[Rfam]
RNA sequence: UGCUGUUAAUGAUGAUUUAAAGUUGAAACAGAUGGGAAUCUCUCUGAAAGAGAAUGAAGAUUAACUUUAAACUGAAACAGUA
Numbered sequence: 001u002g003c004u005g006u007u008a009a010u011g012a013u014g015a016u017u018u019a020a021a022g023u024u025g026a027a028a029c030a031g032a033u034g035g036g037a038a039u040c041u042c043u044c045u046g047a048a049a050g051a052g053a054a055u056g057a058a059g060a061u062u063a064a065c066u067u068u069a070a071a072c073u074g075a076a077a078c079a080g081u082a
Base pairs, nucleotide, nucleotide: 001082002081003080004079005078006077007076
RNA: Small nucleolar RNA SNORD79
Organism: Ictidomys tridecemlineatus